G-CSF factor stem-loop destabilising element (SLDE): a 103-nucleotide RNA from Diceros bicornis. Lineage of the source: Eukaryota > Chordata > Theria > Eutheria > Diceros bicornis. The family has 16 seed sequences and 132 matches in Rfam 15.1. The base pairs follow the family's consensus structure, which is taken from published work. This family represents the granulocyte colony-stimulating factor stem-loop destabilising element (G-CSF SLDE).
RNA sequence: CAGUGAACCCCCUACCCUGAGGUGGGGCCCUUGGAAGCAUCAGGAAGUCUCCCACGUGGGAGACAAGACAGGCCUGUUUAAUAUUUAAACAGCAGUGUUCCCC
Numbered sequence: 001c002a003g004u005g006a007a008c009c010c011c012c013u014a015c016c017c018u019g020a021g022g023u024g025g026g027g028c029c030c031u032u033g034g035a036a037g038c039a040u041c042a043g044g045a046a047g048u049c050u051c052c053c054a055c056g057u058g059g060g061a062g063a064c065a066a067g068a069c070a071g072g073c074c075u076g077u078u079u080a081a082u083a084u085u086u087a088a089a090c091a092g093c094a095g096u097g098u099u100c101c102c103c
Base pairs, nucleotide, nucleotide: 003032005030008027009026010025011024040068041067047064048063049062050061051060052059053058074092075091076090077089078088079087080086081085